[Rfam]
Notes: This 75-nucleotide RNA from Crocuta crocuta belongs to the Rfam family "Small nucleolar RNA SNORD63". By type it is a C/D-box small nucleolar RNA. snoRNA U63 is found in both humans and mice. The literature on the family includes a 2002 paper in Mol Cell Biol by Galardi et al., "Purified box C/D snoRNPs are able to reproduce site-specific 2'-O-methylation of target RNA in vitro". The family has 23 seed sequences and 795 matches in Rfam 15.1. The match comes from Rfam's covariance-model search (80 bits).

Nucleotides: 075
Base pairs, nucleotide, nucleotide: 001074002073003072004071
Number, partner (000 for none) and nucleotide at each position: 001074g002073u003072g004071c005000a006000g007000u008000g009000a010000u011000g012000c013000a014000u015000u016000u017000g018000a019000u020000u021000a022000a023000u024000c025000a026000a027000c028000a029000c030000a031000u032000c033000a034000u035000u036000c037000u038000g039000a040000u041000a042000a043000g044000a045000u046000g047000a048000g049000u050000g051000u052000g053000u054000a055000g056000a057000c058000a059000a060000c061000u062000a063000a064000u065000g066000a067000c068000u069000g070000a071004g072003c073002a074001c075000a